The record is a 99-nucleotide sequence from Calidifontibacillus erzurumensis, which matches "Glycine riboswitch aptamer" in Rfam. Gene Ontology term of the family: glycine biosynthetic process. Rfam 15.1 lists 9,425 matches to the family in 5,228 species. Taxonomically the source falls in Calidifontibacillus (Bacteria, Bacilli, Caryophanales, Bacillaceae).
RNA sequence: AUGAUAACAAGGGGAGAGACCACAAGAAGUCAAAGUGGCGCCGAAGGAGCAAGCAGCAUUGGCUGUGAAUCUCUCAGGCAAAAAGACUCUUGUUUGACG
Numbered sequence: 001a002u003g004a005u006a007a008c009a010a011g012g013g014g015a016g017a018g019a020c021c022a023c024a025a026g027a028a029g030u031c032a033a034a035g036u037g038g039c040g041c042c043g044a045a046g047g048a049g050c051a052a053g054c055a056g057c058a059u060u061g062g063c064u065g066u067g068a069a070u071c072u073c074u075c076a077g078g079c080a081a082a083a084a085g086a087c088u089c090u091u092g093u094u095u096g097a098c099g
Base pairs, nucleotide, nucleotide: 006094007093008092009091010090011089012088013087020038021037022036023035040079041078042077043075044074047073048072049071053066054065055064056063057062
Dot-bracket structure: .....((((((((......((((...........)))).(((((..(((...(((((....)))))....))))).))).......)))))))).....